[Rfam]
RNA: Acido-Lenti-1 RNA
RNA sequence: CCCGGGGCUGACGCCCUGGGCUAUUGGCUGCCGCCCCUCCGGGGCU
Numbered sequence: 001c002c003c004g005g006g007g008c009u010g011a012c013g014c015c016c017u018g019g020g021c022u023a024u025u026g027g028c029u030g031c032c033g034c035c036c037c038u039c040c041g042g043g044g045c046u
Stems, first nucleotide, its partner, number of pairs: 001020008033045005